[Rfam]
RNA: TPP riboswitch aptamer (THI element)
RNA sequence: GAGUUUUACUAGGGGAUCCCUUGAUAAGGGCUGAGAAUAAAGUAGCUACUUUUAAACCCUCAUAACCUGACCAGAUUAGUAUCUGCGUAGGGAAGUAGCGACUGUUUGUG
Number, nucleotide and partner (000 for none) at each position: 001g000002a000003g000004u000005u000006u098007u097008a096009c095010u094011a060012g059013g058014g057015g000016a000017u000018c030019c029020c028021u027022u000023g000024a000025u000026a000027a021028g020029g019030g018031c000032u000033g000034a000035g000036a000037a000038u000039a052040a051041a050042g049043u000044a000045g000046c000047u000048a000049c042050u041051u040052u039053u000054a000055a000056a000057c014058c013059c012060u011061c000062a000063u000064a000065a000066c091067c090068u089069g088070a000071c000072c085073a084074g083075a082076u000077u000078a000079g000080u000081a000082u075083c074084u073085g072086c000087g000088u069089a068090g067091g066092g000093a000094a010095g009096u008097a007098g006099c000100g000101a000102c000103u000104g000105u000106u000107u000108g000109u000110g000